[Rfam]
RNA sequence: GAUUGCUGUGACGACUUAGUAAUAUUCAAGCUCAACAGACCGGAAUGCAGGAUCCUUAAUUGAAUUUUGCGUGUCGAUAACCCGCUUACUGAGCAAUC
Number, nucleotide and partner (000 for none) at each position: 001g098002a097003u096004u095005g094006c093007u000008g000009u000010g000011a000012c000013g000014a000015c000016u000017u000018a000019g000020u000021a000022a000023u000024a000025u000026u000027c000028a000029a000030g000031c000032u000033c000034a000035a000036c000037a000038g000039a000040c000041c000042g000043g000044a000045a000046u000047g000048c000049a000050g000051g000052a000053u000054c000055c000056u000057u000058a000059a000060u000061u000062g000063a000064a000065u000066u000067u000068u000069g000070c000071g000072u000073g000074u000075c000076g000077a000078u000079a000080a000081c000082c000083c000084g000085c000086u000087u000088a000089c000090u000091g000092a000093g006094c005095a004096a003097u002098c001
Shown here is a 98-nucleotide RNA from Cynara cardunculus, a member of the family "Small nucleolar RNA Z107/R87". The match comes from Rfam's covariance-model search (77 bits). Its family is annotated with nucleolus and RNA processing in the Gene Ontology.